[Rfam]
RNA sequence: CGCUCUCUGGAAAGCCAGGACCAGGUCCUGCACCCACGGUGCAAGCCGCAGCUGCGGCGAAGCUCUCAGGUACCCACGACAGAGCGGGGAGG
Numbered sequence: 001c002g003c004u005c006u007c008u009g010g011a012a013a014g015c016c017a018g019g020a021c022c023a024g025g026u027c028c029u030g031c032a033c034c035c036a037c038g039g040u041g042c043a044a045g046c047c048g049c050a051g052c053u054g055c056g057g058c059g060a061a062g063c064u065c066u067c068a069g070g071u072a073c074c075c076a077c078g079a080c081a082g083a084g085c086g087g088g089g090a091g092g
Stems, first nucleotide, its partner, number of pairs: 003086001005084005016030004032071003036066001039065001041063001045058005
This 92-nucleotide RNA from Nocardioides mangrovicus belongs to the Rfam family "Glycine riboswitch aptamer". The family has 44 seed sequences and 9,425 matches in Rfam 15.1. NCBI's taxonomy places the organism under Bacteria, Bacillati, Actinomycetes, Nocardioidaceae, Nocardioides. It scores 41 bits against the family's covariance model.